[Rfam]
RNA sequence: GUAUUUUUCAUGGUAUUAGAUUAUUAAGGUUAAAAAGUGAGAUUGGUUGUCGCGAGAUAACCAAUCUUUUUUCA
Dot-bracket structure: ............................................(((((((....)))))))............
Annotation
A member of the RNA family "Bacteroidetes FopS (family of paralogous sRNAs)" from Segatella oulorum, 74 nucleotides long. It scores 67 bits against the family's covariance model. A reference for the family is Ruttiger et al. (2025), "The global RNA-binding protein RbpB is a regulator of polysaccharide utilization in Bacteroides thetaiotaomicron", Nat Commun. The family's consensus secondary structure is taken from published work.